The record is a 160-nucleotide RNA sequence from Streptococcus agalactiae, which matches "Streptococcus sRNA SSRC38" in Rfam. On this family, see Tesorero et al., PLoS One 2013: "Novel Regulatory Small RNAs in Streptococcus pyogenes". It scores 150 bits against the family's covariance model. It is annotated as a small RNA. The base pairs follow the family's consensus structure, which was predicted with CMfinder. The organism belongs to Streptococcus agalactiae serogroup V, within Bacteria.
[Rfam]
RNA sequence: GAGAGGGGCUAGAGAUUAGCCUCUACUCGAUUGUGCUACCUCAUCAAAAAGAAGUUAGGACAAAUAGCUGUCAACAAUUGCCUUUUGCUUAUCCCUUCAGUUGAUGUGAUAAAAGAUGGUAGUUGUCAUUGACAAAGCAUUGAUAAAGGAGUAAAAUUAA
Numbered sequence: 001g002a003g004a005g006g007g008g009c010u011a012g013a014g015a016u017u018a019g020c021c022u023c024u025a026c027u028c029g030a031u032u033g034u035g036c037u038a039c040c041u042c043a044u045c046a047a048a049a050a051g052a053a054g055u056u057a058g059g060a061c062a063a064a065u066a067g068c069u070g071u072c073a074a075c076a077a078u079u080g081c082c083u084u085u086u087g088c089u090u091a092u093c094c095c096u097u098c099a100g101u102u103g104a105u106g107u108g109a110u111a112a113a114a115g116a117u118g119g120u121a122g123u124u125g126u127c128a129u130u131g132a133c134a135a136a137g138c139a140u141u142g143a144u145a146a147a148g149g150a151g152u153a154a155a156a157u158u159a160a
Base pairs, nucleotide, nucleotide: 002024003023004022005021008020009019010018011017025152026151027150028149031146033140034139035138036137037136056091057090058089059088061087062086063085064084067081068080098103107134108133115130116129117128118127119126120125